[Rfam]
RNA sequence: CCGUGCUAAGCGGGGAGGUAGCGGUGCCCUAUACUCGCAAUCCGCUAGAGCGAGGCCGAAUCCCUUCCCCAGGUUUGCAUAUUGUAAGGUCUGCCCUUUGUAAGUGGUGUUGACAUCCGGGUUCCGUGCAACGGGAACCCGUGAACCCUGUCAGGUCCGGAAGGAAGCAGCAGUAAGCGGGAUCUUCCGUGUGCCGCGGAGGCGCCUGGAUCGAGCUAACUGCUUAGGUAACGCUUAUGAUAUGCUUAUCGAAGGAAGGUGCACGG
Numbered sequence: 001c002c003g004u005g006c007u008a009a010g011c012g013g014g015g016a017g018g019u020a021g022c023g024g025u026g027c028c029c030u031a032u033a034c035u036c037g038c039a040a041u042c043c044g045c046u047a048g049a050g051c052g053a054g055g056c057c058g059a060a061u062c063c064c065u066u067c068c069c070c071a072g073g074u075u076u077g078c079a080u081a082u083u084g085u086a087a088g089g090u091c092u093g094c095c096c097u098u099u100g101u102a103a104g105u106g107g108u109g110u111u112g113a114c115a116u117c118c119g120g121g122u123u124c125c126g127u128g129c130a131a132c133g134g135g136a137a138c139c140c141g142u143g144a145a146c147c148c149u150g151u152c153a154g155g156u157c158c159g160g161a162a163g164g165a166a167g168c169a170g171c172a173g174u175a176a177g178c179g180g181g182a183u184c185u186u187c188c189g190u191g192u193g194c195c196g197c198g199g200a201g202g203c204g205c206c207u208g209g210a211u212c213g214a215g216c217u218a219a220c221u222g223c224u225u226a227g228g229u230a231a232c233g234c235u236u237a238u239g240a241u242a243u244g245c246u247u248a249u250c251g252a253a254g255g256a257a258g259g260u261g262c263a264c265g266g
Stems, first nucleotide, its partner, number of pairs: 001266006010056002012030004017025001019023001034054005063259006072250003079243010092230002096227002100223002104220002106217003115211008123200006129191002132189005138181005148173004156165003
Shown here is a 266-nucleotide RNA sequence from Geomicrobium halophilum, a member of the family "Bacterial large signal recognition particle RNA".
The signal recognition particle (SRP) is a universally conserved ribonucleoprotein involved in the co-translational targeting of proteins to membranes.
By type it is a non-coding RNA gene.
Taxonomically the source falls in Geomicrobium (Bacteria, Bacillati, Bacillota, Caryophanales).